[Rfam]
Notes:
This 257-nucleotide RNA sequence from Soehngenia longivitae belongs to the Rfam family "T-box leader". The base pairs follow the family's consensus structure, which is taken from published work. The literature on the family includes a 1994 paper in J Bacteriol by Grundy et al., "Interaction between the acceptor end of tRNA and the T box stimulates antitermination in the Bacillus subtilis tyrS gene: a new role for the discriminator base". By type it is a cis-regulatory leader.

RNA sequence: AAUAAUCCAAUGAUUAGAAAUAGUAACUAAAGAAUAAGUUAUAGAGAGUUGAGGAUGGUGGAAACUCAACACUGAUUUCUUUUGUGAAUGGAUCUAAUAGGAGCAAGCCGAAAUCAAAGUAUUCUUUGAGAGUAGUUCUUGACGGGAGCUGCCCGUUAUAGCGGAUAGGAUAUGAAUGUAUCUGAAAAUGAGAUAUACUUAUGUAUUUGUAAUAAGUAUAAAUUAGGUGGCAACGCGAAUCUAACUUCGCCCUAUUG
Numbered sequence: 001a002a003u004a005a006u007c008c009a010a011u012g013a014u015u016a017g018a019a020a021u022a023g024u025a026a027c028u029a030a031a032g033a034a035u036a037a038g039u040u041a042u043a044g045a046g047a048g049u050u051g052a053g054g055a056u057g058g059u060g061g062a063a064a065c066u067c068a069a070c071a072c073u074g075a076u077u078u079c080u081u082u083u084g085u086g087a088a089u090g091g092a093u094c095u096a097a098u099a100g101g102a103g104c105a106a107g108c109c110g111a112a113a114u115c116a117a118a119g120u121a122u123u124c125u126u127u128g129a130g131a132g133u134a135g136u137u138c139u140u141g142a143c144g145g146g147a148g149c150u151g152c153c154c155g156u157u158a159u160a161g162c163g164g165a166u167a168g169g170a171u172a173u174g175a176a177u178g179u180a181u182c183u184g185a186a187a188a189u190g191a192g193a194u195a196u197a198c199u200u201a202u203g204u205a206u207u208u209g210u211a212a213u214a215a216g217u218a219u220a221a222a223u224u225a226g227g228u229g230g231c232a233a234c235g236c237g238a239a240u241c242u243a244a245c246u247u248c249g250c251c252c253u254a255u256u257g
Stems, first nucleotide, its partner, number of pairs: 007101002015096004026085002029082003037073003048070006104141004143155003195219007224254004235250005